Plastid-rps12 3UTR RNA: a 103-nucleotide RNA sequence from Morella rubra. From the family's description: Plastid rpl20 is a non-coding RNA (ncRNA) recognised in plastids. Taxonomically the source falls in Morella (Eukaryota, Tracheophyta, Magnoliopsida, Gunneridae).

RNA sequence: GGUUUCGAUUGGUGUAAAUCCAAUCGUCUCAAUUUUCAAUUUAAGAUGAGAAAGAAUUUCCCAUUGGUAGCAAACGGUUAUCCAUUAAGCAGGGGAAUAGUAU
Numbered sequence: 001g002g003u004u005u006c007g008a009u010u011g012g013u014g015u016a017a018a019u020c021c022a023a024u025c026g027u028c029u030c031a032a033u034u035u036u037c038a039a040u041u042u043a044a045g046a047u048g049a050g051a052a053a054g055a056a057u058u059u060c061c062c063a064u065u066g067g068u069a070g071c072a073a074a075c076g077g078u079u080a081u082c083c084a085u086u087a088a089g090c091a092g093g094g095g096a097a098u099a100g101u102a103u
Base pairs, nucleotide, nucleotide: 009023010022011021012020059094060093061092063085064084066082067081068080069079070078071077